Rfam assigns this 71-nucleotide sequence from Synaphobranchus kaupii to the family "Small nucleolar RNA SNORD30".
A search with the family's covariance model found it, with a score of 47 bits.

RNA sequence: UCAAAUGAUGAUUUUCACUUUGGAAUCUCGUUCGUCUGAUUUCCUGUUGAGAAAUUGAAUUUCUGACUGCA
Number, nucleotide and partner (000 for none) at each position: 001u000002c000003a000004a000005a000006u000007g000008a000009u000010g000011a000012u000013u000014u000015u000016c000017a000018c000019u000020u000021u000022g000023g000024a000025a000026u052027c051028u050029c049030g048031u000032u000033c046034g045035u000036c000037u000038g000039a000040u000041u000042u000043c000044c000045u034046g033047u000048u030049g029050a028051g027052a026053a000054a000055u000056u000057g000058a000059a000060u000061u000062u000063c000064u000065g000066a000067c000068u000069g000070c000071a000

A reference for the family is Tycowski et al. (1996), "A mammalian gene with introns instead of exons generating stable RNA products", Nature. By type it is a C/D-box small nucleolar RNA. The family is grouped with related families in Rfam's "SNORD30 clan". Pairs were carried over by alignment from the consensus structure.